rpsB sRNA: a 97-nucleotide sequence from Aquabacter sp. L1I39. Lineage of the source: Bacteria > Pseudomonadati > Pseudomonadota > Xanthobacteraceae > Aquabacter. Rfam classes the family as a small RNA.
RNA sequence: CGCACGCGGACAUCGGCCGAACUCGGCCAUCCGGUGCCCUCGGUCAUGUCUGAUCGAAGGUACGUCCGCGGAGGCUUAACCGGAGAUUACCACAGUG
Numbered sequence: 001c002g003c004a005c006g007c008g009g010a011c012a013u014c015g016g017c018c019g020a021a022c023u024c025g026g027c028c029a030u031c032c033g034g035u036g037c038c039c040u041c042g043g044u045c046a047u048g049u050c051u052g053a054u055c056g057a058a059g060g061u062a063c064g065u066c067c068g069c070g071g072a073g074g075c076u077u078a079a080c081c082g083g084a085g086a087u088u089a090c091c092a093c094a095g096u097g
Base pairs, nucleotide, nucleotide: 001073003071005070006069007068008067009066010065011064015028016027017026018025019024036061037060038059040057041056042055043054044053045052